[Rfam]
RNA: Bacillus-plasmid RNA
RNA sequence: CUUGUCAAUGGUAAGGGAAGGAACAGACUGCGAGCGGGAAAAUGGUUACUAGAUUGACAAGUGCAGAAGA
Numbered sequence: 001c002u003u004g005u006c007a008a009u010g011g012u013a014a015g016g017g018a019a020g021g022a023a024c025a026g027a028c029u030g031c032g033a034g035c036g037g038g039a040a041a042a043u044g045g046u047u048a049c050u051a052g053a054u055u056g057a058c059a060a061g062u063g064c065a066g067a068a069g070a
Base pairs, nucleotide, nucleotide: 001061002060003059004058005057006056007055008054009053